[Rfam]
RNA sequence: ACUGGCUUUGGCCACUGUGGCUUUGUACGUGGCCCCGGGCUAGACUGGGCAUCCAGCGCUGCCAGGAACCUCAGCUCACGGCUCACGUCUGUGUUGAAGGGUGAAAGCCAGGCGUCCGCACAC
Number, nucleotide and partner (000 for none) at each position: 001a000002c000003u000004g000005g050006c049007u048008u047009u042010g041011g040012c039013c000014a000015c000016u000017g000018u000019g034020g033021c032022u031023u000024u000025g000026u000027a000028c000029g000030u000031g022032g021033c020034c019035c000036c000037g000038g000039g012040c011041u010042a009043g000044a000045c000046u000047g008048g007049g006050c005051a000052u000053c000054c000055a000056g000057c000058g000059c000060u000061g000062c000063c000064a000065g116066g000067a000068a000069c112070c111071u110072c000073a000074g000075c000076u104077c103078a102079c101080g000081g000082c000083u000084c000085a094086c093087g000088u000089c000090u000091g000092u000093g086094u085095u000096g000097a000098a000099g000100g000101g079102u078103g077104a076105a000106a000107g000108c000109c000110a071111g070112g069113c000114g000115u000116c065117c000118g000119c000120a000121c000122a000123c000